[Rfam]
RNA: Yersinia sRNA 251
Organism: Sodalis-like symbiont of Bactericera trigonica
RNA sequence: CGUAAGCGCUCAACGUGCGCUGACAUAGCGCCGAGCGCACACACUCCUGCUGUGCUGAAACUAAUGAUUGCGAUCAUGUCGUCAUCUUCCUGGAACCGCUCAAGCGCACAUCCGCCAACCACGAUUUAACGCCGCGCGGCAAAUCACAUUGCGUCACGUCGCUGUUAACGAUCACCGUAACAUUCUCACCCAACCGCGUC
Numbered sequence: 001c002g003u004a005a006g007c008g009c010u011c012a013a014c015g016u017g018c019g020c021u022g023a024c025a026u027a028g029c030g031c032c033g034a035g036c037g038c039a040c041a042c043a044c045u046c047c048u049g050c051u052g053u054g055c056u057g058a059a060a061c062u063a064a065u066g067a068u069u070g071c072g073a074u075c076a077u078g079u080c081g082u083c084a085u086c087u088u089c090c091u092g093g094a095a096c097c098g099c100u101c102a103a104g105c106g107c108a109c110a111u112c113c114g115c116c117a118a119c120c121a122c123g124a125u126u127u128a129a130c131g132c133c134g135c136g137c138g139g140c141a142a143a144u145c146a147c148a149u150u151g152c153g154u155c156a157c158g159u160c161g162c163u164g165u166u167a168a169c170g171a172u173c174a175c176c177g178u179a180a181c182a183u184u185c186u187c188a189c190c191c192a193a194c195c196g197c198g199u200c
Base pairs, nucleotide, nucleotide: 002055003054004053005051006050007049008048015040016039017038018037019036064077065076066075067074068073087118088117091114092113097106098105099104120198122196123195126193127192131140132139133138143172144171145170150164151163177189178188180186